[Rfam]
RNA: Mammalian CPEB3 ribozyme
Organism: Crocodylus porosus
RNA sequence: GGUUGCAAGUUUGAGGCCACACCAGAAGUGCUCACUGUGUGGCCCUGUCAGAGUCCAGCAAAUCUAUGAAUUCUGCC
Numbered sequence: 001g002g003u004u005g006c007a008a009g010u011u012u013g014a015g016g017c018c019a020c021a022c023c024a025g026a027a028g029u030g031c032u033c034a035c036u037g038u039g040u041g042g043c044c045c046u047g048u049c050a051g052a053g054u055c056c057a058g059c060a061a062a063u064c065u066a067u068g069a070a071u072u073c074u075g076c077c
Base pairs, nucleotide, nucleotide: 013045015044016043017042018041023075024074025073026072027071028040029039030038050065051064052063054061